RNA sequence: UGACCCGGUGGCGCCCGACGCCAAAGACCAAAGAACCGGGGAAAGAACCAAUCCCACCCUCACCGCCCCCGUCGCUCACUCGCCGGAGUGAAUAUGCCCAACGCAACUGGCGCGACGGGGGAGUUGUGGUGCAGCCUCGGCUGCAACAGCCCGUAAACAUGCAUCGGCCCUCGCCGGGACUGGCAUCCCACUGCGAGGGCCUGAUCACCGAGGAAGGCCCACUUCCCG
Numbered sequence: 001u002g003a004c005c006c007g008g009u010g011g012c013g014c015c016c017g018a019c020g021c022c023a024a025a026g027a028c029c030a031a032a033g034a035a036c037c038g039g040g041g042a043a044a045g046a047a048c049c050a051a052u053c054c055c056a057c058c059c060u061c062a063c064c065g066c067c068c069c070c071g072u073c074g075c076u077c078a079c080u081c082g083c084c085g086g087a088g089u090g091a092a093u094a095u096g097c098c099c100a101a102c103g104c105a106a107c108u109g110g111c112g113c114g115a116c117g118g119g120g121g122a123g124u125u126g127u128g129g130u131g132c133a134g135c136c137u138c139g140g141c142u143g144c145a146a147c148a149g150c151c152c153g154u155a156a157a158c159a160u161g162c163a164u165c166g167g168c169c170c171u172c173g174c175c176g177g178g179a180c181u182g183g184c185a186u187c188c189c190a191c192u193g194c195g196a197g198g199g200c201c202u203g204a205u206c207a208c209c210g211a212g213g214a215a216g217g218c219c220c221a222c223u224u225c226c227c228g
Stems, first nucleotide, its partner, number of pairs: 007209004017067001019065002076091006106142001107140004166201005172195003176189004212226005
Dot-bracket structure: ......((((......(.((...........................................)).)........((((((....))))))..............(((((..........................)))).).......................(((((.(((.((((......))))...))).)))))....))))..(((((.....)))))..